[Rfam]
RNA sequence: AUACUUCAGGGCCAUCUCUUCCUGGUUCUUCCCAGAGUCAGGAAAAACUGGGUUGAAAGGGUGUUUAAAAAAAAAA
Numbered sequence: 001a002u003a004c005u006u007c008a009g010g011g012c013c014a015u016c017u018c019u020u021c022c023u024g025g026u027u028c029u030u031c032c033c034a035g036a037g038u039c040a041g042g043a044a045a046a047a048c049u050g051g052g053u054u055g056a057a058a059g060g061g062u063g064u065u066u067a068a069a070a071a072a073a074a075a076a
Stems, first nucleotide, its partner, number of pairs: 015058001017056002021052005029044004
RNA: mir-320 microRNA precursor family
Organism: Gorilla gorilla